[Rfam]
RNA sequence: CUAUAGUCAGAAAUGAGCUUAUUCAUCAAAGUACAAUAACAGGCAGUAAGUCUGUAAUUUCAUGUGUAAGCUGGUCUCUGACUGAA
Numbered sequence: 001c002u003a004u005a006g007u008c009a010g011a012a013a014u015g016a017g018c019u020u021a022u023u024c025a026u027c028a029a030a031g032u033a034c035a036a037u038a039a040c041a042g043g044c045a046g047u048a049a050g051u052c053u054g055u056a057a058u059u060u061c062a063u064g065u066g067u068a069a070g071c072u073g074g075u076c077u078c079u080g081a082c083u084g085a086a
Stems, first nucleotide, its partner, number of pairs: 004084008013075002016072007024064003028060003032056004
Dot-bracket structure: ...((((((((.((.(((((((.(((.(((.((((.................)))).))).))).))))))).)).))))))))..
Shown here is an 86-nucleotide RNA from Neotoma lepida, a member of the family "mir-590 microRNA precursor family". A reference for the family is Murchison et al. (2008), "Conservation of small RNA pathways in platypus", Genome Res. The match comes from Rfam's covariance-model search (76 bits). The base pairs follow the family's consensus structure, which was predicted with RNAalifold.